[Rfam]
RNA sequence: UAGCAUUCUGGUAGCUAUGAGCCAUGGGCGGUAGCGUG
Number, nucleotide and partner (000 for none) at each position: 001u000002a000003g000004c000005a000006u000007u000008c000009u024010g023011g022012u021013a000014g000015c000016u000017a000018u000019g000020a000021g012022c011023c010024a009025u000026g000027g000028g000029c000030g000031g000032u000033a000034g000035c000036g000037u000038g000

The record is a 38-nucleotide RNA from Kluyvera cryocrescens, which matches "JUMPstart RNA" in Rfam. Rfam classes the family as a cis-regulatory element. The family's consensus secondary structure is taken from published work.